A member of the RNA family "Small nucleolar RNA SNORD25", 84 nucleotides long. A search with the family's covariance model found it, with a score of 64 bits. Gene Ontology terms of the family: nucleolus and RNA processing. The family's RNA type in Rfam is C/D-box small nucleolar RNA. The base pairs follow the family's consensus structure, which was predicted with PFOLD. Rfam 15.1 lists 985 matches to the family in 241 species.

Nucleotides: 084
Base pairs, nucleotide, nucleotide: 002083003082004081005080006079
Number, partner (000 for none) and nucleotide at each position: 001000g002083a003082a004081a005080a006079c007000g008000a009000u010000g011000a012000u013000g014000a015000g016000u017000c018000a019000u020000a021000c022000a023000g024000a025000c026000c027000u028000g029000u030000a031000a032000u033000g034000a035000u036000u037000g038000c039000a040000g041000a042000u043000a044000u045000g046000a047000u048000u049000g050000c051000a052000a053000u054000u055000g056000u057000u058000u059000u060000u061000g062000a063000a064000c065000a066000u067000c068000u069000a070000a071000g072000g073000g074000a075000c076000u077000g078000a079006g080005u081004u082003u083002u084000u